[Rfam]
RNA sequence: GCAAGAAUCGCAAUCUUUUGGUAGUAAUAACCCCUCAUAACAUUACUACAGGAUUUAGCAAUCGGGGAGAUACUCCUUCUCCCUGGUUGUAUGCCU
Numbered sequence: 001g002c003a004a005g006a007a008u009c010g011c012a013a014u015c016u017u018u019u020g021g022u023a024g025u026a027a028u029a030a031c032c033c034c035u036c037a038u039a040a041c042a043u044u045a046c047u048a049c050a051g052g053a054u055u056u057a058g059c060a061a062u063c064g065g066g067g068a069g070a071u072a073c074u075c076c077u078u079c080u081c082c083c084u085g086g087u088u089g090u091a092u093g094c095c096u
Stems, first nucleotide, its partner, number of pairs: 021049008058090012